[Rfam]
RNA sequence: CUUCAUUCUUAAGCGCCAGAACUUAUGACGGGCUUCGCCUAUUAAGCAGACUGUGUAGAUCGCACGGAUCUAGAGAGCCUGAAGCAGCGCGGACGAUCGGACGGUGGAAGCCGCGCUUCAUAAGUUGACGAGGUGAAGGUGUUCGGAUGUUUCGGCGGGGACCUUCCAGCCCAGGCAUCGGGCUGUGAGUUAGAGACCAAAACGGCAGGGCGACUUGCCGGCCAAAGCUCUGACAGAUGCAGAG
Numbered sequence: 001c002u003u004c005a006u007u008c009u010u011a012a013g014c015g016c017c018a019g020a021a022c023u024u025a026u027g028a029c030g031g032g033c034u035u036c037g038c039c040u041a042u043u044a045a046g047c048a049g050a051c052u053g054u055g056u057a058g059a060u061c062g063c064a065c066g067g068a069u070c071u072a073g074a075g076a077g078c079c080u081g082a083a084g085c086a087g088c089g090c091g092g093a094c095g096a097u098c099g100g101a102c103g104g105u106g107g108a109a110g111c112c113g114c115g116c117u118u119c120a121u122a123a124g125u126u127g128a129c130g131a132g133g134u135g136a137a138g139g140u141g142u143u144c145g146g147a148u149g150u151u152u153c154g155g156c157g158g159g160g161a162c163c164u165u166c167c168a169g170c171c172c173a174g175g176c177a178u179c180g181g182g183c184u185g186u187g188a189g190u191u192a193g194a195g196a197c198c199a200a201a202a203c204g205g206c207a208g209g210g211c212g213a214c215u216u217g218c219c220g221g222c223c224a225a226a227g228c229u230c231u232g233a234c235a236g237a238u239g240c241a242g243a244g
Base pairs, nucleotide, nucleotide: 020126021125022124023123024122025121026120027119135166136165137164138163139162143155144154145153146152167185168184169183170182171181172180189234190233191232192231193230194229195228203220204219205218206217207216208215209214
Rfam assigns this 244-nucleotide RNA from Insulibacter thermoxylanivorax to the family "glmS glucosamine-6-phosphate activated ribozyme aptamer". The family's consensus secondary structure is taken from published work. Its family is annotated with catalytic activity and regulation of gene expression in the Gene Ontology. The source organism's lineage runs through Bacteria, Bacillati, Bacilli, Paenibacillaceae and Insulibacter.